[Rfam]
RNA sequence: CUGUGGUGCAUUGUAGUUGCAUUGCAUGUACGAUACACUCUGCAGUGCUUCUGCAGUGCAAACACAG
Numbered sequence: 001c002u003g004u005g006g007u008g009c010a011u012u013g014u015a016g017u018u019g020c021a022u023u024g025c026a027u028g029u030a031c032g033a034u035a036c037a038c039u040c041u042g043c044a045g046u047g048c049u050u051c052u053g054c055a056g057u058g059c060a061a062a063c064a065c066a067g
Base pairs, nucleotide, nucleotide: 001067002066003065004064006063007060008059009058010057011056012055013054014053015052016051019048021046022045023044024043025042026041
mir-33 microRNA precursor family: a 67-nucleotide RNA from Saccoglossus kowalevskii. NCBI's taxonomy places the organism under Eukaryota, Opisthokonta, Eumetazoa, Hemichordata, Saccoglossus. The sequence is in the family's curated seed alignment.